Plastid-psbA-1 3UTR RNA: a 117-nucleotide sequence from Musa balbisiana. NCBI's taxonomy places the organism under Eukaryota, Streptophytina, Spermatophyta, Petrosaviidae, Musa. Rfam classes the family as a cis-regulatory element.
[Rfam]
RNA sequence: UCGAAGUUUCAUCUACAAAUGGACAAAGAGUUUUGUCUUAGUGUAUACGAAUCGUUGAAACCAAGUAUCAUACCCCAUGUCUUGACUUUAAGCAAGCCAUGGGGGUAUUGCUACCUU
Numbered sequence: 001u002c003g004a005a006g007u008u009u010c011a012u013c014u015a016c017a018a019a020u021g022g023a024c025a026a027a028g029a030g031u032u033u034u035g036u037c038u039u040a041g042u043g044u045a046u047a048c049g050a051a052u053c054g055u056u057g058a059a060a061c062c063a064a065g066u067a068u069c070a071u072a073c074c075c076c077a078u079g080u081c082u083u084g085a086c087u088u089u090a091a092g093c094a095a096g097c098c099a100u101g102g103g104g105g106u107a108u109u110g111c112u113a114c115c116u117u
Stems, first nucleotide, its partner, number of pairs: 008023005063116001065114003069110001070108004075102003079098001081096003